[Rfam]
A member of the RNA family "MIR403 microRNA precursor family" from Olea europaea, 153 nucleotides long. Rfam links the family to the GO terms RISC complex and miRNA-mediated post-transcriptional gene silencing. A reference for the family is Mica et al. (2009), "High throughput approaches reveal splicing of primary microRNA transcripts and tissue specific expression of mature microRNAs in Vitis vinifera", BMC Genomics. The family's consensus secondary structure was predicted with WAR.

RNA sequence: GCGGAUUUCCAGUUUGUGCGUGAAUUUAACGCGAUGAGUACAGACUUAAUUUGGGGGAUUUUGACACGAAAUUUAGUCAACAAAUUCCCGAUUUAGAAAUUAAUUGGUGUUGUAUUAGUUCGUUAGAUUCACGCACAAACUCGAAAUCUGUCU
Numbered sequence: 001g002c003g004g005a006u007u008u009c010c011a012g013u014u015u016g017u018g019c020g021u022g023a024a025u026u027u028a029a030c031g032c033g034a035u036g037a038g039u040a041c042a043g044a045c046u047u048a049a050u051u052u053g054g055g056g057g058a059u060u061u062u063g064a065c066a067c068g069a070a071a072u073u074u075a076g077u078c079a080a081c082a083a084a085u086u087c088c089c090g091a092u093u094u095a096g097a098a099a100u101u102a103a104u105u106g107g108u109g110u111u112g113u114a115u116u117a118g119u120u121c122g123u124u125a126g127a128u129u130c131a132c133g134c135a136c137a138a139a140c141u142c143g144a145a146a147u148c149u150g151u152c153u
Stems, first nucleotide, its partner, number of pairs: 001151003005147003011141016028124003079108001081106001